A member of the RNA family "c-di-GMP-I riboswitch aptamer" from Crateriforma conspicua, 110 nucleotides long.

RNA sequence: CCCUGACAAAGGCAAGACGUCCGAGAGGAUGAUCGCGCAAAACCACGGGUCCGUGGGUGAGCCGGCAAAGCGAUUUGUCGGCGUAGCCUCAGGAAAGCCGGGUUGCCGAG
Numbered sequence: 001c002c003c004u005g006a007c008a009a010a011g012g013c014a015a016g017a018c019g020u021c022c023g024a025g026a027g028g029a030u031g032a033u034c035g036c037g038c039a040a041a042a043c044c045a046c047g048g049g050u051c052c053g054u055g056g057g058u059g060a061g062c063c064g065g066c067a068a069a070g071c072g073a074u075u076u077g078u079c080g081g082c083g084u085a086g087c088c089u090c091a092g093g094a095a096a097g098c099c100g101g102g103u104u105g106c107c108g109a110g
Stems, first nucleotide, its partner, number of pairs: 012038002017033001018031005041104004046100003050094002
The base pairs follow the family's consensus structure, which is taken from published work. Rfam describes the family as follows. GEMM was predicted in a large-scale screen for bacterial structured RNA regulatory elements. Lineage of the source: Bacteria > Planctomycetia > Pirellulales > Pirellulaceae > Crateriforma.